MIR2655 microRNA precursor family: a 217-nucleotide sequence from Medicago truncatula. The match comes from Rfam's covariance-model search (158 bits).
[Rfam]
RNA sequence: CCCUUAACUAUUAAAAGUUUCGUUUUAGUCCCUUAACUUAUUUUUUGGUUUCGUUUGGUCCCUUAACUCUUCCUCCGUCAACCACUUUGGCCCUUUAUGUUAGGAUGAAUGUAUUAUAGUUAAGGACCAAAACAAAAUCAAAAAAUAAGUUAAGGGACCAAAACGAAACCAAAAAAUAAGUUAAGGGACCAAAACGAAACUUUUAAUAGUUAAGGGA
Numbered sequence: 001c002c003c004u005u006a007a008c009u010a011u012u013a014a015a016a017g018u019u020u021c022g023u024u025u026u027a028g029u030c031c032c033u034u035a036a037c038u039u040a041u042u043u044u045u046u047g048g049u050u051u052c053g054u055u056u057g058g059u060c061c062c063u064u065a066a067c068u069c070u071u072c073c074u075c076c077g078u079c080a081a082c083c084a085c086u087u088u089g090g091c092c093c094u095u096u097a098u099g100u101u102a103g104g105a106u107g108a109a110u111g112u113a114u115u116a117u118a119g120u121u122a123a124g125g126a127c128c129a130a131a132a133c134a135a136a137a138u139c140a141a142a143a144a145a146u147a148a149g150u151u152a153a154g155g156g157a158c159c160a161a162a163a164c165g166a167a168a169c170c171a172a173a174a175a176a177u178a179a180g181u182u183a184a185g186g187g188a189c190c191a192a193a194a195c196g197a198a199a200c201u202u203u204u205a206a207u208a209g210u211u212a213a214g215g216g217a
Stems, first nucleotide, its partner, number of pairs: 002215007023194003028189002031186013045172003